[Rfam]
RNA: Lysine riboswitch aptamer
RNA sequence: AGUGAGGGUAGAGGCGCAAAUGUCAUGAGUAAAGAUGCGGAGGAGAAUGAGCUCCAUUGAUGCAUUUUAAAAGGGGGAUUUGCCGAAGCGUACAAAUGCUCAUUCUUUCUACGCUGGGACUGUAUUUAACAAAUACAGGACUGUCAUGCAGCACUGUCUGCAUGGAGGGCUAUCUCACGC
Numbered sequence: 001a002g003u004g005a006g007g008g009u010a011g012a013g014g015c016g017c018a019a020a021u022g023u024c025a026u027g028a029g030u031a032a033a034g035a036u037g038c039g040g041a042g043g044a045g046a047a048u049g050a051g052c053u054c055c056a057u058u059g060a061u062g063c064a065u066u067u068u069a070a071a072a073g074g075g076g077g078a079u080u081u082g083c084c085g086a087a088g089c090g091u092a093c094a095a096a097u098g099c100u101c102a103u104u105c106u107u108u109c110u111a112c113g114c115u116g117g118g119a120c121u122g123u124a125u126u127u128a129a130c131a132a133a134u135a136c137a138g139g140a141c142u143g144u145c146a147u148g149c150a151g152c153a154c155u156g157u158c159u160g161c162a163u164g165g166a167g168g169g170c171u172a173u174c175u176c177a178c179g180c
Stems, first nucleotide, its partner, number of pairs: 006175006016083006023076002032068008087115006094108003098104001116142002120138007144165007